[Rfam]
Rfam assigns this 34-nucleotide sequence to the family "S4-Flavobacteria ribosomal protein leader". The family's consensus secondary structure is taken from published work. The family's RNA type in Rfam is cis-regulatory leader. The family is grouped with related families in Rfam's "Ribosomal Protein S4 Leader clan". The literature on the family includes a 2020 paper in BMC Microbiol by Eckert and Weinberg, "Discovery of 20 novel ribosomal leader candidates in bacteria and archaea". Rfam's curators put it in the seed alignment.
RNA sequence: UACAUCGAAGGAUACUGACCUUAAUUCAUGAUUA
Numbered sequence: 001u002a003c004a005u006c007g008a009a010g011g012a013u014a015c016u017g018a019c020c021u022u023a024a025u026u027c028a029u030g031a032u033u034a
Base pairs, nucleotide, nucleotide: 001034002032003030004029005028007027008022009021010020011019